[Rfam]
RNA sequence: UUUGAAGAUAGAGGAGCAAUAAUUAAGAGUAAUUCUAAGGAGCUAGUGUAGGCUAAGAAUUAGAAUAAAAGGGAUUAUUGCCGAAAUUUUAAAGUCAGCACAGGCUUUAAAGUUGGGACUAUGAUUAAUAGUCAUAGUACUGUCAUUAAGAAAUUAGUGAAGGGCUAUCUUAUAU
Numbered sequence: 001u002u003u004g005a006a007g008a009u010a011g012a013g014g015a016g017c018a019a020u021a022a023u024u025a026a027g028a029g030u031a032a033u034u035c036u037a038a039g040g041a042g043c044u045a046g047u048g049u050a051g052g053c054u055a056a057g058a059a060u061u062a063g064a065a066u067a068a069a070a071g072g073g074a075u076u077a078u079u080g081c082c083g084a085a086a087u088u089u090u091a092a093a094g095u096c097a098g099c100a101c102a103g104g105c106u107u108u109a110a111a112g113u114u115g116g117g118a119c120u121a122u123g124a125u126u127a128a129u130a131g132u133c134a135u136a137g138u139a140c141u142g143u144c145a146u147u148a149a150g151a152a153a154u155u156a157g158u159g160a161a162g163g164g165c166u167a168u169c170u171u172a173u174a175u
Base pairs, nucleotide, nucleotide: 006170007169008168009167010166011165016081017080018079019078020077021076022075023074024073032066033065034064035063036062037061038060085114086113087112088111089110090109091108092107093106094105095104096103115141116140118138119137120136121135122134123133124132125131143160144159145158146157147156148155149154
A member of the RNA family "Lysine riboswitch aptamer" from Orenia metallireducens, 175 nucleotides long. Pairs were carried over by alignment from the consensus structure, which is taken from published work. NCBI's taxonomy places the organism under Bacteria, Bacillati, Clostridia, Halobacteroidaceae, Orenia. Riboswitches are metabolite binding domains within certain messenger RNAs that serve as precision sensors for their corresponding targets.